RNA: Mammalian CPEB3 ribozyme
Organism: Alligator sinensis
RNA sequence: UUACUUUGAUGAGGGGCAUAGCAGAAGCAUUCAUGUUGUGACCCCUGUCAAGUAAUACCUGGUAAUACCUGAAAAUUCUUCU
Number, nucleotide and partner (000 for none) at each position: 001u000002u000003a000004c000005u000006u000007u000008g000009a000010u000011g000012a000013g044014g043015g042016g000017c040018a000019u000020a082021g081022c000023a079024g078025a077026a076027g039028c038029a037030u000031u000032c000033a000034u000035g000036u000037u029038g028039u027040g017041a000042c015043c014044c013045c000046u000047g000048u000049c071050a070051a000052g068053u067054a066055a000056u000057a000058c000059c000060u000061g000062g000063u000064a000065a000066u054067a053068c052069c000070u050071g049072a000073a000074a000075a000076u026077u025078c024079u023080u000081c021082u020